[Rfam]
RNA sequence: GUAAGUGUGAGGAGUGAAAGUUAUAGCGAAAAGCCCUUGGAGUCGAAACACGGAAAGACGCCCUUGGGCUUUUUAGCG
Number, nucleotide and partner (000 for none) at each position: 001g000002u000003a000004a000005g000006u000007g000008u000009g000010a000011g000012g000013a000014g000015u000016g000017a000018a000019a000020g000021u000022u000023a000024u000025a000026g000027c000028g000029a073030a072031a071032a070033g069034c068035c067036c000037u000038u000039g063040g062041a000042g059043u058044c057045g000046a000047a000048a000049c000050a000051c000052g000053g000054a000055a000056a000057g044058a043059c042060g000061c000062c040063c039064u000065u000066g000067g035068g034069c033070u032071u031072u030073u029074u000075a000076g000077c000078g000
RNA: Cyano-1 RNA